[Rfam]
Nucleotides: 064
Base pairs, nucleotide, nucleotide: 004060005059006058007057008056009055010054012051013050017045018044019043020042021041022040024038025037026036
Number, partner (000 for none) and nucleotide at each position: 001000a002000g003000a004060a005059c006058u007057a008056c009055c010054c011000a012051a013050c014000c015000c016000a017045a018044g019043c020042a021041u022040u023000g024038a025037c026036u027000u028000g029000a030000g031000u032000a033000u034000g035000c036026a037025g038024u039000a040022a041021g042020u043019g044018c045017u046000a047000c048000u049000u050013g051012u052000u053000g054010g055009g056008g057007u058006a059005g060004u061000u062000u063000u064000g
This 64-nucleotide RNA sequence from Etheostoma spectabile belongs to the Rfam family "miR-430 microRNA precursor family". Pairs were carried over by alignment from the consensus structure, which was predicted with RNAalifold. The literature on the family includes a 2005 paper in Science by Giraldez et al., "MicroRNAs regulate brain morphogenesis in zebrafish".